[Rfam]
RNA sequence: GGUGAAAGUGAUGAAUUCUGGGGGUCUGAUCUGUGUGACUUGAAAAAGGCCAUCCAUUUCCUGAUUCACC
Numbered sequence: 001g002g003u004g005a006a007a008g009u010g011a012u013g014a015a016u017u018c019u020g021g022g023g024g025u026c027u028g029a030u031c032u033g034u035g036u037g038a039c040u041u042g043a044a045a046a047a048g049g050c051c052a053u054c055c056a057u058u059u060c061c062u063g064a065u066u067c068a069c070c
Stems, first nucleotide, its partner, number of pairs: 001070006